[Rfam]
RNA sequence: GCAUAAUGAUGAUGAAUUAGAAACUGUCCGAUUUUGUUAAUGACUGGAAUCUAAUACCUCCUACUCAUUCUGA
Numbered sequence: 001g002c003a004u005a006a007u008g009a010u011g012a013u014g015a016a017u018u019a020g021a022a023a024c025u026g027u028c029c030g031a032u033u034u035u036g037u038u039a040a041u042g043a044c045u046g047g048a049a050u051c052u053a054a055u056a057c058c059u060c061c062u063a064c065u066c067a068u069u070c071u072g073a
Base pairs, nucleotide, nucleotide: 006068007067008066009065027048028047
RNA: Small nucleolar RNA Z105
Organism: Carya illinoinensis